[Rfam]
The family of this 92-nucleotide RNA from Lacrimispora algidixylanolytica is "Selenocysteine transfer RNA".
The source organism's lineage runs through Bacteria, Bacillota, Clostridia, Lachnospiraceae and Lacrimispora.
Rfam links the family to the GO term triplet codon-amino acid adaptor activity.

RNA sequence: GGAAACAGAGAGGUAACUGGUGUGCCUACCGGUCUUCAAAACCGUGUUGCGGUAUUAACUGCCGUGGGUGGGUUCGAUUCCCAUAUGUUUCC
Numbered sequence: 001g002g003a004a005a006c007a008g009a010g011a012g013g014u015a016a017c018u019g020g021u022g023u024g025c026c027u028a029c030c031g032g033u034c035u036u037c038a039a040a041a042c043c044g045u046g047u048u049g050c051g052g053u054a055u056u057a058a059c060u061g062c063c064g065u066g067g068g069u070g071g072g073u074u075c076g077a078u079u080c081c082c083a084u085a086u087g088u089u090u091c092c
Stems, first nucleotide, its partner, number of pairs: 001092007009084001012027002016023002030044004048066005069083004